[Rfam]
RNA sequence: GAAUGUUGUCGCAAUAGUAAUUGAACUUAGUACGAGAGGAACCGUUCAUUCAGAUAAUUGGUUUUUGCGGCUGUCUGAGCAGACACUGCCGCGACGCUACCAUCUGCUGGAUAAUGGCUGAACGCCUCUAAGUCAGAAUCCAUGCUAGAACGCGACGAUUACCUGCCCUCGCACAUUUGAGAAGGAUACGAAUAAGGCCCUGUGGCCGCAGAACCGUAGCAGGCCGGCAGCGGUGCGCAUGGCGGAAAGGCCGUGUGUGCUUGCCGGCGGAUGGCAAUGUCAGGAUGCGCGAGGAUAAAUCCUAUGCAUACGACUUAGAUGUACAACGGGGUAUUGUAAGCAGUAGAGUAGCCUUGUUGUUACGAUCUGCUGAGAUUAAGCCUCUGUUGUCCGAUUUGU
Numbered sequence: 001g002a003a004u005g006u007u008g009u010c011g012c013a014a015u016a017g018u019a020a021u022u023g024a025a026c027u028u029a030g031u032a033c034g035a036g037a038g039g040a041a042c043c044g045u046u047c048a049u050u051c052a053g054a055u056a057a058u059u060g061g062u063u064u065u066u067g068c069g070g071c072u073g074u075c076u077g078a079g080c081a082g083a084c085a086c087u088g089c090c091g092c093g094a095c096g097c098u099a100c101c102a103u104c105u106g107c108u109g110g111a112u113a114a115u116g117g118c119u120g121a122a123c124g125c126c127u128c129u130a131a132g133u134c135a136g137a138a139u140c141c142a143u144g145c146u147a148g149a150a151c152g153c154g155a156c157g158a159u160u161a162c163c164u165g166c167c168c169u170c171g172c173a174c175a176u177u178u179g180a181g182a183a184g185g186a187u188a189c190g191a192a193u194a195a196g197g198c199c200c201u202g203u204g205g206c207c208g209c210a211g212a213a214c215c216g217u218a219g220c221a222g223g224c225c226g227g228c229a230g231c232g233g234u235g236c237g238c239a240u241g242g243c244g245g246a247a248a249g250g251c252c253g254u255g256u257g258u259g260c261u262u263g264c265c266g267g268c269g270g271a272u273g274g275c276a277a278u279g280u281c282a283g284g285a286u287g288c289g290c291g292a293g294g295a296u297a298a299a300u301c302c303u304a305u306g307c308a309u310a311c312g313a314c315u316u317a318g319a320u321g322u323a324c325a326a327c328g329g330g331g332u333a334u335u336g337u338a339a340g341c342a343g344u345a346g347a348g349u350a351g352c353c354u355u356g357u358u359g360u361u362a363c364g365a366u367c368u369g370c371u372g373a374g375a376u377u378a379a380g381c382c383u384c385u386g387u388u389g390u391c392c393g394a395u396u397u398g399u
Stems, first nucleotide, its partner, number of pairs: 005159008015147004020050001022048005051106005059099003066093005072085005108142003115135005168293005174287001297397005302318003306314001323390006329383003333376002340370004345366001348363005